[Rfam]
RNA: Repression of heat shock gene expression (ROSE) element
RNA sequence: UACGCGAUGCCGCAAUCGGGUCGCGCCUUAAAUCACUUGGAGAACACUCAGGAGAUUUACUAUGGCU
Numbered sequence: 001u002a003c004g005c006g007a008u009g010c011c012g013c014a015a016u017c018g019g020g021u022c023g024c025g026c027c028u029u030a031a032a033u034c035a036c037u038u039g040g041a042g043a044a045c046a047c048u049c050a051g052g053a054g055a056u057u058u059a060c061u062a063u064g065g066c067u
Stems, first nucleotide, its partner, number of pairs: 003025006010019003031056001036054003042049002